[Rfam]
RNA sequence: AGGAAUAAGAAGCUGAAUCCGGGUUUUUCGCCCGGAACGGGGGAUUUCCAUUAGUGGGGUGAAUCACACGCAGUGUGUAGGGCUUACACCUUAGUGCCCGAAUCCGUCAACUAACCUCGUAAGCUGAGAAAGGUGGACAU
Number, nucleotide and partner (000 for none) at each position: 001a000002g000003g000004a000005a000006u000007a000008a000009g000010a000011a125012g124013c123014u122015g000016a000017a000018u036019c035020c034021g033022g032023g031024u030025u000026u000027u000028u000029c000030g024031c023032c022033c021034g020035g019036a018037a120038c119039g118040g117041g116042g115043g000044a000045u000046u000047u000048c000049c056050a055051u000052u000053a000054g000055u050056g049057g105058g104059g103060u000061g000062a000063a000064u000065c077066a076067c075068a074069c000070g000071c000072a000073g000074u068075g067076u066077g065078u000079a000080g099081g098082g097083c096084u000085u000086a000087c000088a000089c000090c000091u000092u000093a000094g000095u000096g083097c082098c081099c080100g000101a000102a000103u059104c058105c057106g000107u000108c000109a000110a000111c000112u000113a000114a000115c042116c041117u040118c039119g038120u037121a000122a014123g013124c012125u011126g000127a000128g000129a000130a000131a000132g000133g000134u000135g000136g000137a000138c000139a000140u000

Source information: The record is a 140-nucleotide RNA sequence from Peptococcaceae bacterium CEB3, which matches "c-di-AMP riboswitch aptamer (ydaO/yuaA leader)" in Rfam.